[Rfam]
RNA sequence: GGAGGGUGCUGUGUGCCUGGUUGGUCACCGCGGUCUUCAAAACCGUUGUAGGGCUGUUAUGGUUCUGGGUUGGUUCGAUUCCUUCCCCCUCC
Numbered sequence: 001g002g003a004g005g006g007u008g009c010u011g012u013g014u015g016c017c018u019g020g021u022u023g024g025u026c027a028c029c030g031c032g033g034u035c036u037u038c039a040a041a042a043c044c045g046u047u048g049u050a051g052g053g054c055u056g057u058u059a060u061g062g063u064u065c066u067g068g069g070u071u072g073g074u075u076c077g078a079u080u081c082c083u084u085c086c087c088c089c090u091c092c
Stems, first nucleotide, its partner, number of pairs: 001092006008085001011028003016023001030046005049067005072082002
RNA: Selenocysteine transfer RNA
Organism: Rubritalea profundi